[Rfam]
RNA sequence: CCCGGGUGAAAUGUCGCCUGUAAUCCACGGAAGUGGAGGGGUUUGGGCUGGGUCCUCGGAUGGAGGAGCCUGCGGCGGACAGGUCCGGGGAUUCCGCACAUUCUGUGGCGCGCCCGUCUCCAAGCUUGGAGUGGAGGCACGGCUUCUCCUCGUAGGGGGAGGUGUCUGCCUUCCUUGAAGUGGGGGGGACCGCGUGUAGGCCGGCAACGGAGCGACGAAGACUCCCCUCUCCCGGCAGUGGAGGGAUAACGCAGCCCUCGUGUAGCCCCCGAUCAACCUCCCGCCCCCGCUCCUACAGACCUCAGCCCUC
Numbered sequence: 001c002c003c004g005g006g007u008g009a010a011a012u013g014u015c016g017c018c019u020g021u022a023a024u025c026c027a028c029g030g031a032a033g034u035g036g037a038g039g040g041g042u043u044u045g046g047g048c049u050g051g052g053u054c055c056u057c058g059g060a061u062g063g064a065g066g067a068g069c070c071u072g073c074g075g076c077g078g079a080c081a082g083g084u085c086c087g088g089g090g091a092u093u094c095c096g097c098a099c100a101u102u103c104u105g106u107g108g109c110g111c112g113c114c115c116g117u118c119u120c121c122a123a124g125c126u127u128g129g130a131g132u133g134g135a136g137g138c139a140c141g142g143c144u145u146c147u148c149c150u151c152g153u154a155g156g157g158g159g160a161g162g163u164g165u166c167u168g169c170c171u172u173c174c175u176u177g178a179a180g181u182g183g184g185g186g187g188g189a190c191c192g193c194g195u196g197u198a199g200g201c202c203g204g205c206a207a208c209g210g211a212g213c214g215a216c217g218a219a220g221a222c223u224c225c226c227c228u229c230u231c232c233c234g235g236c237a238g239u240g241g242a243g244g245g246a247u248a249a250c251g252c253a254g255c256c257c258u259c260g261u262g263u264a265g266c267c268c269c270c271g272a273u274c275a276a277c278c279u280c281c282c283g284c285c286c287c288c289g290c291u292c293c294u295a296c297a298g299a300c301c302u303c304a305g306c307c308c309u310c
Base pairs, nucleotide, nucleotide: 001040002039003038004019005018006017007016008015009014024037025036026035027034045308046307047306048305049304050303051302052301061297062296064294065293066292067291068290069289072286074285075284076283077282078281081279082278083277084276086271087270088269089268090267092265093264095262096261097260100258105257107255110252111251112250114245115244118243119242120241121240122239124236125235126234128232129231130230131229133173134172135171136170137169138168141166142165143164145162146161147160148159149158150157151156174180175179182226183225184224185223186222193217194216195215201210202209203208

This 310-nucleotide sequence from Adiantum capillus-veneris belongs to the Rfam family "Plant signal recognition particle RNA". The organism belongs to Adiantum, within Eukaryota.